[Rfam]
RNA sequence: GGGUGCUUGCUGCAUGACGUGGCGAGGCAGGCAAUAGCGUCGGUCGGGCCGCCACG
Numbered sequence: 001g002g003g004u005g006c007u008u009g010c011u012g013c014a015u016g017a018c019g020u021g022g023c024g025a026g027g028c029a030g031g032c033a034a035u036a037g038c039g040u041c042g043g044u045c046g047g048g049c050c051g052c053c054a055c056g
Base pairs, nucleotide, nucleotide: 005028006026007025008024009023010022011021038056039055040054042053043052044051
nhaA-I RNA: a 56-nucleotide sequence.
The family's consensus secondary structure is taken from published work.
Rfam describes the family as follows. Acidobacteria, Alphaproteobacteria, Betaproteobacteria and Gammaproteobacteria, Verrucomicrobia, cand. division NC10.
By type it is a riboswitch.